[Rfam]
The record is a 100-nucleotide sequence from Paramylibacter kogurei, which matches "Pyrrolysine insertion sequence mttB" in Rfam. The family has 23 seed sequences and 416 matches in Rfam 15.1. On this family, see Theil Have et al., BMC Bioinformatics 2013: "Effects of using coding potential, sequence conservation and mRNA structure conservation for predicting pyrroly-sine containing genes". Gene Ontology term of the family: pyrrolysine incorporation. The base pairs follow the family's consensus structure, which was predicted with CMfinder.
RNA sequence: AUUGCCGAUGCAAAAAUGCCCGACAUGCAAGCGGGAUAUGAACAGGCACAUUCCAACGUUAUGGCAGGACUAUCAGGGUUGAAUAUGGUGUACGAGGCCG
Numbered sequence: 001a002u003u004g005c006c007g008a009u010g011c012a013a014a015a016a017u018g019c020c021c022g023a024c025a026u027g028c029a030a031g032c033g034g035g036a037u038a039u040g041a042a043c044a045g046g047c048a049c050a051u052u053c054c055a056a057c058g059u060u061a062u063g064g065c066a067g068g069a070c071u072a073u074c075a076g077g078g079u080u081g082a083a084u085a086u087g088g089u090g091u092a093c094g095a096g097g098c099c100g
Base pairs, nucleotide, nucleotide: 003012033062035060077098079096080095